[Rfam]
RNA sequence: AAUUUAGUUUUCUAGGGUUCCGCGGCAUAUGCCGGUCUGGACCGAGGGAGAACACGCAGCUCUGCUGCGGACACACGGAGGGACAAAAGCCCGGGAGAU
Numbered sequence: 001a002a003u004u005u006a007g008u009u010u011u012c013u014a015g016g017g018u019u020c021c022g023c024g025g026c027a028u029a030u031g032c033c034g035g036u037c038u039g040g041a042c043c044g045a046g047g048g049a050g051a052a053c054a055c056g057c058a059g060c061u062c063u064g065c066u067g068c069g070g071a072c073a074c075a076c077g078g079a080g081g082g083a084c085a086a087a088a089g090c091c092c093g094g095g096a097g098a099u
Stems, first nucleotide, its partner, number of pairs: 007053006015043002020040002022037001023034004055069005074094001076097001080092003